[Rfam]
RNA: TPP riboswitch aptamer (THI element)
Organism: Stakelama tenebrarum
RNA sequence: ACCAUUCCCCGGGGGAGCGCCGAACCGCGCUUGAGAGGCAGGCAGGAGCCUGCGACCCGCUGAACCUGAUCCCGAUGAUACGGGCGUAGGGAGGGAGCGGUUUUUCCCG
Numbered sequence: 001a002c003c004a005u006u007c008c009c010c011g012g013g014g015g016a017g018c019g020c021c022g023a024a025c026c027g028c029g030c031u032u033g034a035g036a037g038g039c040a041g042g043c044a045g046g047a048g049c050c051u052g053c054g055a056c057c058c059g060c061u062g063a064a065c066c067u068g069a070u071c072c073c074g075a076u077g078a079u080a081c082g083g084g085c086g087u088a089g090g091g092a093g094g095g096a097g098c099g100g101u102u103u104u105u106c107c108c109g
Base pairs, nucleotide, nucleotide: 005097006096007095008094009093010059011058012057013056015053016031017030018029019028020027041049065090066089067088068087071084072083073082074081